[Rfam]
RNA sequence: AUAGUCUGUGGAAAGGCUACUGUGUUGUUGAACUUGCCCAGCUGUGGGUGCAGCCAUGUACCAGGCAGCCCAAGCCUGACAUAAAGUAAAUUCCCAGGAGAAGUCUUUCCUGGGUUUUGAAUUUGCAGUAACAGGUGUAAGCAUUCCAGCAGCAGUUUGUUGAUCAUGUGAUAUCAGAAAUGCAA
Numbered sequence: 001a002u003a004g005u006c007u008g009u010g011g012a013a014a015g016g017c018u019a020c021u022g023u024g025u026u027g028u029u030g031a032a033c034u035u036g037c038c039c040a041g042c043u044g045u046g047g048g049u050g051c052a053g054c055c056a057u058g059u060a061c062c063a064g065g066c067a068g069c070c071c072a073a074g075c076c077u078g079a080c081a082u083a084a085a086g087u088a089a090a091u092u093c094c095c096a097g098g099a100g101a102a103g104u105c106u107u108u109c110c111u112g113g114g115u116u117u118u119g120a121a122u123u124u125g126c127a128g129u130a131a132c133a134g135g136u137g138u139a140a141g142c143a144u145u146c147c148a149g150c151a152g153c154a155g156u157u158u159g160u161u162g163a164u165c166a167u168g169u170g171a172u173a174u175c176a177g178a179a180a181u182g183c184a185a
Stems, first nucleotide, its partner, number of pairs: 004080003008076001015070004020064003024061002027054004032049003093114003097109004122180003128174003132170002138166001140164001142162002145159001148157003
Rfam assigns this 185-nucleotide sequence to the family "Small Cajal body specific RNA 16". The base pairs follow the family's consensus structure, which was predicted with RNAfold. By type it is a small Cajal body RNA. It is one of the family's seed sequences. Rfam describes the family as follows. scaRNAs are a specific class of small nuclear RNAs which localise to the Cajal bodies and guide the modification of RNA polymerase II transcribed spliceosomal RNAs U1, U2, U4, U5 and U12. ACA47 belongs to the H/ACA box class of guide RNAs as it has the predicted hairpin-hinge-hairpin-tail structure, the conserved H/ACA-box motifs and is found associated with GAR1. ACA47 is predicted to guide the pseudouridylation of residue U5 of the U1 spliceosomal snRNA. The literature on the family includes a 2002 paper in EMBO J by Darzacq et al., "Cajal body-specific small nuclear RNAs: a novel class of 2'-O-methylation and pseudouridylation guide RNAs".